[Rfam]
This 121-nucleotide sequence from Streptomyces sparsogenes belongs to the Rfam family "Streptomyces-metH RNA".
The family's consensus secondary structure is taken from published work.
RNA sequence: CUGUCCCGCCACGUGGAACACCCCCCGUCGAGAGCCCCCCGGCGGCUACGCUGGCCUGGUGCGCCCUCCGGGAGGAGGGCGCAAAGCCGACAGCCGUCGCACCUCAGGGAGCUCACCCAUG
Dot-bracket structure: ...........................................................((((.((((......)))).))))..((.(((....))))).....................
Description: It is annotated as a small RNA.